This 102-nucleotide RNA from Heyndrickxia ginsengihumi belongs to the Rfam family "Purine riboswitch aptamer".
RNA sequence: UAAUUAAAUACUUUGUACUUUCGUAUAAAUUCAGGAAUAUGGCCUGAACGUUUCUACCGAGCUACCGUAAAUGGCUUGACUACGAGGUGAGUGCAUAAUAAA
Numbered sequence: 001u002a003a004u005u006a007a008a009u010a011c012u013u014u015g016u017a018c019u020u021u022c023g024u025a026u027a028a029a030u031u032c033a034g035g036a037a038u039a040u041g042g043c044c045u046g047a048a049c050g051u052u053u054c055u056a057c058c059g060a061g062c063u064a065c066c067g068u069a070a071a072u073g074g075c076u077u078g079a080c081u082a083c084g085a086g087g088u089g090a091g092u093g094c095a096u097a098a099u100a101a102a
Base pairs, nucleotide, nucleotide: 019087020086021085022084023083024082025081030048031047032046033045034044035043058078059077060076061075062074063073064072
A search with the family's covariance model found it, with a score of 87 bits. Lineage of the source: Bacteria > Bacillati > Bacillota > Bacilli > Heyndrickxia. Pairs were carried over by alignment from the consensus structure, which is taken from published work.